[Rfam]
The family of this 91-nucleotide RNA sequence from Campylobacter corcagiensis is "Selenocysteine transfer RNA".
RNA sequence: GAGAGUAUAACGACCUGGUGGCGUUCACGGACUUCAAAUCCGAUGUUGGAGCGGUUGACCGUUUCGUGGGAGGUUCGAUUCCUUCACUCUC
Numbered sequence: 001g002a003g004a005g006u007a008u009a010a011c012g013a014c015c016u017g018g019u020g021g022c023g024u025u026c027a028c029g030g031a032c033u034u035c036a037a038a039u040c041c042g043a044u045g046u047u048g049g050a051g052c053g054g055u056u057g058a059c060c061g062u063u064u065c066g067u068g069g070g071a072g073g074u075u076c077g078a079u080u081c082c083u084u085c086a087c088u089c090u091c
Stems, first nucleotide, its partner, number of pairs: 001091006009025004014021002028042004047066006070084004
Dot-bracket structure: ((((((..((((.((....))))))..((((.......))))....((((((........))))))...((((.......)))).))))))

Lineage of the source: Bacteria > Pseudomonadati > Campylobacterota > Campylobacterales > Campylobacter.